[Rfam]
A member of the RNA family "RNase MRP" from Botryotinia narcissicola, 467 nucleotides long.
The organism belongs to Botryotinia, within Eukaryota.
Rfam's curators write: RNase MRP is an enzymatically active ribonucleoprotein with two distinct roles in eukaryotes. In mitochondria it plays a direct role in the initiation of mitochondrial DNA replication.
The family is grouped with related families in Rfam's "RNaseP clan".
RNA sequence: UUCUCGCUCAAAGAAUCGCAUUCGAAGCACACAAACAGAAAUAUCUUCAUCGAUGUUUCAAUCUACUAUUAUGCUUUGGGAGAAAGUCCCCGGACACCCUUCUUUCUAAAAGUUAGGAUUGCGGAAACGCGCCGCCAUAGAAGCACUUGCGGCUUCUCUUCUACCAAUUCUUUACCUUCAAUUUCAUCCAUCCUUUUGCCGCUAUUACUAUUGCCACGAGGCUUCUUGAAAAUUGGAUUCGGAGCCUAGGAGACCACAUGGAUGAAGAUAUGAGUCUGAGCUCCUGUGUACUGUUUCCAACUGACUUGGAGAAGAGUGGUGAUGGGAGGUAGAAGACAUGUUCCUGAUUGGGGUGGGAGUGUUAAUGGUAGUCGAGGCUUUUUCGUCGAGAUCGAUAGUUAUGCGAUUGCUUUCUUUUGCUGUAAAGCUGGGAAAGUAACUCGAUGGGGCUUAUUCUUGGUGCGAGA
Numbered sequence: 001u002u003c004u005c006g007c008u009c010a011a012a013g014a015a016u017c018g019c020a021u022u023c024g025a026a027g028c029a030c031a032c033a034a035a036c037a038g039a040a041a042u043a044u045c046u047u048c049a050u051c052g053a054u055g056u057u058u059c060a061a062u063c064u065a066c067u068a069u070u071a072u073g074c075u076u077u078g079g080g081a082g083a084a085a086g087u088c089c090c091c092g093g094a095c096a097c098c099c100u101u102c103u104u105u106c107u108a109a110a111a112g113u114u115a116g117g118a119u120u121g122c123g124g125a126a127a128c129g130c131g132c133c134g135c136c137a138u139a140g141a142a143g144c145a146c147u148u149g150c151g152g153c154u155u156c157u158c159u160u161c162u163a164c165c166a167a168u169u170c171u172u173u174a175c176c177u178u179c180a181a182u183u184u185c186a187u188c189c190a191u192c193c194u195u196u197u198g199c200c201g202c203u204a205u206u207a208c209u210a211u212u213g214c215c216a217c218g219a220g221g222c223u224u225c226u227u228g229a230a231a232a233u234u235g236g237a238u239u240c241g242g243a244g245c246c247u248a249g250g251a252g253a254c255c256a257c258a259u260g261g262a263u264g265a266a267g268a269u270a271u272g273a274g275u276c277u278g279a280g281c282u283c284c285u286g287u288g289u290a291c292u293g294u295u296u297c298c299a300a301c302u303g304a305c306u307u308g309g310a311g312a313a314g315a316g317u318g319g320u321g322a323u324g325g326g327a328g329g330u331a332g333a334a335g336a337c338a339u340g341u342u343c344c345u346g347a348u349u350g351g352g353g354u355g356g357g358a359g360u361g362u363u364a365a366u367g368g369u370a371g372u373c374g375a376g377g378c379u380u381u382u383u384c385g386u387c388g389a390g391a392u393c394g395a396u397a398g399u400u401a402u403g404c405g406a407u408u409g410c411u412u413u414c415u416u417u418u419g420c421u422g423u424a425a426a427g428c429u430g431g432g433a434a435a436g437u438a439a440c441u442c443g444a445u446g447g448g449g450c451u452u453a454u455u456c457u458u459g460g461u462g463c464g465a466g467a
Base pairs, nucleotide, nucleotide: 002467003466004465005464006463007462008460009459010458011457014408015407016406017405018404019403022080023078024077025076026075027074028073038059039058040057041056042055043054044053084452085451086450088449089448090447091446120131121130122129123128278380279379280378284376285375288372289371290369291368292367293366302364303363304362305361343353344352345351410436411435412434413433414432415431